This 203-nucleotide RNA from Triticum aestivum belongs to the Rfam family "MIR1435 microRNA precursor family". The source organism's lineage runs through Eukaryota, Mesangiospermae, Poaceae, Pooideae and Triticum.
RNA sequence: UAGGUUUGUGCUAAGUUAAACUUUCUUCACUUUGACCAAAUUUAUAGAAAAGUUUACUAAUAUCUACAACAUCAAAUAUAUAUAUAGCAUGAAAAUAUAUUUUAUAACGAAUCUAAUGAAACUAAUUUGUUGUUGUAGAUGUUGAUAUAUUUUCCUAUAGACUAGGUCAAACCUAAAAAAGGUUUGAAUUAGAAUGAAACUAG
Numbered sequence: 001u002a003g004g005u006u007u008g009u010g011c012u013a014a015g016u017u018a019a020a021c022u023u024u025c026u027u028c029a030c031u032u033u034g035a036c037c038a039a040a041u042u043u044a045u046a047g048a049a050a051a052g053u054u055u056a057c058u059a060a061u062a063u064c065u066a067c068a069a070c071a072u073c074a075a076a077u078a079u080a081u082a083u084a085u086a087g088c089a090u091g092a093a094a095a096u097a098u099a100u101u102u103u104a105u106a107a108c109g110a111a112u113c114u115a116a117u118g119a120a121a122c123u124a125a126u127u128u129g130u131u132g133u134u135g136u137a138g139a140u141g142u143u144g145a146u147a148u149a150u151u152u153u154c155c156u157a158u159a160g161a162c163u164a165g166g167u168c169a170a171a172c173c174u175a176a177a178a179a180a181g182g183u184u185u186g187a188a189u190u191a192g193a194a195u196g197a198a199a200c201u202a203g
Stems, first nucleotide, its partner, number of pairs: 005198005011192004016187009026177001031171005045157003049153004055147002059143010073129005